[Rfam]
RNA: Small nucleolar RNA SNORD42
Organism: Capra hircus
RNA sequence: GCGCAUCGGAUGGAAAAAUUUUAAUCUCGUGAGACUUGCGAUGUCUUCAAAGGAACCACUGAUGCAC
Number, nucleotide and partner (000 for none) at each position: 001g067002c000003g065004c064005a063006u000007c000008g000009g000010a000011u000012g000013g000014a000015a000016a000017a000018a000019u000020u000021u000022u000023a000024a000025u000026c000027u000028c000029g000030u000031g000032a000033g000034a000035c000036u000037u000038g000039c000040g000041a000042u000043g000044u000045c000046u000047u000048c000049a000050a000051a000052g000053g000054a000055a000056c000057c000058a000059c000060u000061g000062a000063u005064g004065c003066a000067c001